[Rfam]
RNA sequence: UGAGGAAUGAGUUUAAGCUCAAAAAUCCUGCAAAUAUACAUACACAAAAUUAAAAAAUCAAAAAAAGGAAGAGGAUUAAGACUUGAAAAUUAUAUUUUCUUUCUUUCCUUCUUUUUUUUUUUUGUUUUUUUUUUUAUAUAUUUUGUGUAAUUAAUAAAAUACAGGAAGGAAGGUCUGAGAUGCUGCAAAAAAAGAAUUAAUUAUAUUUCUUAAAAAUAAAGUAAGAUUAUUAAAAAUAGUCUUAUAUUUAUUUUUUUAUACUUAUUUCUUUAUUAAUAUUUUUGAGAAAAAUAAUAUUGAACAAAUAUUAAUUAGCUACCAGAAAUAUCAAUCAUAUGUUUAUAGUAGUUUUUUUAAUUAUAAAAAAAUUAUAUAUAUAUAUAUGAUUUUGAAAAAGCUAAUAAGCAAGUAUACAUUGGUGAGUUCGAUUUUUGAGGUUUUUCAACUGCUUCGAUUUUUUUUUGAAGUAGUAGAAAAAUAACUUAAUUCAGACUACUCCUAAAUUCAUUCCAAAAU
Number, nucleotide and partner (000 for none) at each position: 001u000002g000003a000004g511005g510006a509007a508008u507009g506010a505011g504012u503013u502014u501015a500016a000017g000018c436019u435020c434021a433022a432023a431024a430025a000026u166027c165028c164029u163030g162031c000032a000033a000034a000035u000036a000037u000038a000039c000040a000041u149042a148043c147044a146045c145046a144047a143048a000049a000050u000051u000052a000053a000054a000055a000056a000057a000058u000059c000060a000061a000062a000063a000064a000065a000066a000067g000068g000069a000070a000071g000072a000073g000074g000075a000076u000077u000078a000079a000080g000081a000082c000083u000084u000085g000086a000087a000088a000089a000090u000091u000092a000093u000094a000095u000096u000097u000098u000099c000100u000101u000102u000103c000104u000105u000106u000107c000108c000109u000110u000111c000112u000113u000114u000115u000116u000117u000118u000119u000120u000121u000122u000123u000124g000125u000126u000127u000128u000129u000130u000131u000132u000133u000134u000135u000136a000137u000138a000139u000140a000141u000142u000143u047144u046145g045146u044147g043148u042149a041150a000151u000152u000153a000154a000155u000156a000157a000158a000159a000160u000161a000162c030163a029164g028165g027166a026167a000168g000169g000170a000171a494172g493173g000174u000175c491176u490177g489178a488179g487180a412181u411182g410183c409184u408185g406186c405187a000188a000189a000190a000191a000192a000193a000194g000195a000196a000197u000198u000199a000200a000201u000202u000203a000204u000205a000206u000207u000208u000209c000210u000211u000212a000213a000214a000215a000216a000217u000218a000219a000220a000221g000222u000223a000224a000225g000226a000227u000228u000229a000230u000231u000232a000233a000234a000235a000236a000237u000238a000239g000240u000241c000242u000243u000244a000245u000246a000247u000248u000249u000250a000251u000252u000253u000254u000255u000256u000257u000258a000259u000260a266261c000262u000263u000264a000265u000266u260267u000268c000269u000270u000271u000272a000273u000274u000275a000276a000277u000278a000279u000280u291281u290282u289283u288284g000285a000286g000287a000288a283289a282290a281291a280292u000293a000294a000295u000296a000297u000298u000299g000300a000301a000302c000303a000304a000305a000306u000307a000308u404309u403310a402311a000312u401313u400314a399315g398316c397317u396318a000319c000320c000321a000322g000323a000324a000325a000326u000327a000328u000329c000330a000331a000332u000333c385334a384335u383336a382337u381338g380339u379340u000341u000342a378343u377344a376345g000346u000347a000348g000349u000350u000351u000352u000353u000354u000355u000356a000357a000358u000359u000360a000361u000362a000363a000364a000365a000366a000367a000368a000369u000370u000371a000372u000373a000374u000375a000376u344377a343378u342379a339380u338381a337382u336383a335384u334385g333386a000387u000388u000389u000390u000391g000392a000393a000394a000395a000396a317397g316398c315399u314400a313401a312402u310403a309404a308405g186406c185407a000408a184409g183410u182411a181412u180413a000414c000415a000416u000417u000418g000419g000420u000421g000422a000423g000424u000425u000426c000427g000428a000429u000430u024431u023432u022433u021434g020435a019436g018437g479438u478439u477440u476441u475442u474443c473444a000445a000446c000447u000448g000449c000450u000451u000452c000453g000454a000455u000456u000457u000458u000459u000460u000461u000462u000463u000464g000465a000466a000467g000468u000469a000470g000471u000472a000473g443474a442475a441476a440477a439478a438479u437480a000481a000482c000483u000484u000485a000486a000487u179488u178489c177490a176491g175492a000493c172494u171495a000496c000497u000498c000499c000500u015501a014502a013503a012504u011505u010506c009507a008508u007509u006510c005511c004512a000513a000514a000515a000516u000